[Rfam]
RNA sequence: AAGCGAGGACGACCUCCCCCGAUAAGGGCCUAUGGCCGGGACGACCCGG
Numbered sequence: 001a002a003g004c005g006a007g008g009a010c011g012a013c014c015u016c017c018c019c020c021g022a023u024a025a026g027g028g029c030c031u032a033u034g035g036c037c038g039g040g041a042c043g044a045c046c047c048g049g
Stems, first nucleotide, its partner, number of pairs: 003018001005016004036049005

Source information: Rfam assigns this 49-nucleotide sequence from Roseivivax sediminis to the family "Guanidine-II riboswitch aptamer (mini-ykkC)".